[Rfam]
RNA: Small Nucleolar RNA SNORD64
Organism: Aotus nancymaae
RNA sequence: GGAUUUGUGAUGAGCUGUGUUUACUGAGCAUGAUGAUAAAGCUCAAUGUGAUUACUCUGAAGUCC
Numbered sequence: 001g002g003a004u005u006u007g008u009g010a011u012g013a014g015c016u017g018u019g020u021u022u023a024c025u026g027a028g029c030a031u032g033a034u035g036a037u038a039a040a041g042c043u044c045a046a047u048g049u050g051a052u053u054a055c056u057c058u059g060a061a062g063u064c065c
Base pairs, nucleotide, nucleotide: 001065002064003063004062005061012057013056014055020051021050025045026044027043028042029041